[Rfam]
Nucleotides: 087
Base pairs, nucleotide, nucleotide: 006048007047008046010044011043012042015039016038017075018074019073020072024035025034026033027032064082065081066080067079068078
Number, partner (000 for none) and nucleotide at each position: 001000g002000c003000g004000c005000g006048g007047g008046g009000c010044c011043g012042c013000g014000a015039c016038u017075g018074g019073c020072g021000a022000g023000g024035g025034u026033g027032g028000u029000g030000a031000a032027c033026c034025a035024c036000c037000g038016g039015g040000g041000a042012g043011c044010g045000a046008c047007c048006c049000g050000a051000a052000g053000g054000a055000c056000c057000u058000g059000c060000u061000g062000g063000u064082g065081c066080g067079u068078c069000g070000u071000c072020c073019g074018c075017c076000u077000g078068g079067g080066c081065g082064c083000c084000c085000g086000g087000g

ZMP/ZTP riboswitch aptamer (pfl RNA motif): an 87-nucleotide sequence from Antribacter soli.
Taxonomically the source falls in Antribacter (Bacteria, Actinomycetota, Actinomycetes, Micrococcales).
It scores 45 bits against the family's covariance model.